[Rfam]
About this RNA: Shown here is a 358-nucleotide sequence from Enterococcus cecorum, a member of the family "Bacterial RNase P class B".
RNA sequence: GUUUUCGGAUAAUCGCGGGGUAUUCUUUACCCUGAGGAAAGUCCAUGCUCACACAAGCUGCGAUGCUUGUAGUGUUCGUGCUUAGCGAAACAAUAAGCUAAGGUAUAGUUUUACUAUAACGGCGGAAGUAAUGGCUAAGGAAAUUUCUAUGCCAGAGAAUUCCUUAACGUGCAACAGUGACGAUAAAUAAGAGAAAUCUUAUUGUGAAACGGGUAAACCCCUCGAGUGAGCAACCCAAAUUAUGGUAGGGGCGCCUUUUGGACGGAAAUGAACGGAUCAAAGGGGCAUUGAAUGCAGAUAGAUGAUUAUCCAUAUCUUUUUUCCCUGGAUAAGAUAGGACAAAACAUGGCUUAUAGAA
Numbered sequence: 001g002u003u004u005u006c007g008g009a010u011a012a013u014c015g016c017g018g019g020g021u022a023u024u025c026u027u028u029a030c031c032c033u034g035a036g037g038a039a040a041g042u043c044c045a046u047g048c049u050c051a052c053a054c055a056a057g058c059u060g061c062g063a064u065g066c067u068u069g070u071a072g073u074g075u076u077c078g079u080g081c082u083u084a085g086c087g088a089a090a091c092a093a094u095a096a097g098c099u100a101a102g103g104u105a106u107a108g109u110u111u112u113a114c115u116a117u118a119a120c121g122g123c124g125g126a127a128g129u130a131a132u133g134g135c136u137a138a139g140g141a142a143a144u145u146u147c148u149a150u151g152c153c154a155g156a157g158a159a160u161u162c163c164u165u166a167a168c169g170u171g172c173a174a175c176a177g178u179g180a181c182g183a184u185a186a187a188u189a190a191g192a193g194a195a196a197u198c199u200u201a202u203u204g205u206g207a208a209a210c211g212g213g214u215a216a217a218c219c220c221c222u223c224g225a226g227u228g229a230g231c232a233a234c235c236c237a238a239a240u241u242a243u244g245g246u247a248g249g250g251g252c253g254c255c256u257u258u259u260g261g262a263c264g265g266a267a268a269u270g271a272a273c274g275g276a277u278c279a280a281a282g283g284g285g286c287a288u289u290g291a292a293u294g295c296a297g298a299u300a301g302a303u304g305a306u307u308a309u310c311c312a313u314a315u316c317u318u319u320u321u322u323c324c325c326u327g328g329a330u331a332a333g334a335u336a337g338g339a340c341a342a343a344a345c346a347u348g349g350c351u352u353a354u355a356g357a358a
Stems, first nucleotide, its partner, number of pairs: 004358003007354001008310007016034006039352003043349005048230005053070006076225003080221001081102006103120001104118006121220002124163004132154004139148003169218002171214002186203007234250003254284007285295004313336006320329001
The base pairs follow the family's consensus structure, which is taken from published work. Its family is annotated with tRNA processing, dimeric ribonuclease P complex and ribonuclease P activity in the Gene Ontology.